[Rfam]
RNA sequence: AGCAGGGCGCAGCAGGGCACAGCAGAGGGAUCCGGCAGUGUCACCAAGGUCACGGCCGGUUACC
Numbered sequence: 001a002g003c004a005g006g007g008c009g010c011a012g013c014a015g016g017g018c019a020c021a022g023c024a025g026a027g028g029g030a031u032c033c034g035g036c037a038g039u040g041u042c043a044c045c046a047a048g049g050u051c052a053c054g055g056c057c058g059g060u061u062a063c064c
Stems, first nucleotide, its partner, number of pairs: 032059005038053002040050003
RNA: DnaX ribosomal frameshifting element